RNA sequence: AAAUCAGUUGAUGAGAGAAUAACUGCAAGAAUACGAUGGAUUCGUUCCAUGAUUCUCUGUACUUAAGUCUCUGAUGAUU
Numbered sequence: 001a002a003a004u005c006a007g008u009u010g011a012u013g014a015g016a017g018a019a020u021a022a023c024u025g026c027a028a029g030a031a032u033a034c035g036a037u038g039g040a041u042u043c044g045u046u047c048c049a050u051g052a053u054u055c056u057c058u059g060u061a062c063u064u065a066a067g068u069c070u071c072u073g074a075u076g077a078u079u
Stems, first nucleotide, its partner, number of pairs: 001079002004077003038048003
Dot-bracket structure: ((.(((...............................(((.....)))..........................)))))
Shown here is a 79-nucleotide sequence from Morus notabilis, a member of the family "Small nucleolar RNA Z199". Its family is annotated with RNA processing and nucleolus in the Gene Ontology. The match comes from Rfam's covariance-model search (77 bits). About the family: snoZ199 is a C/D box small nucleolar RNA, which acts as a methylation guide RNA for sites on 18S and 25S rRNA. Rice snoZ199 is reported to be homologous to Arabidopsis snoR13. It is annotated as a C/D-box small nucleolar RNA. Pairs were carried over by alignment from the consensus structure, which was predicted with PFOLD.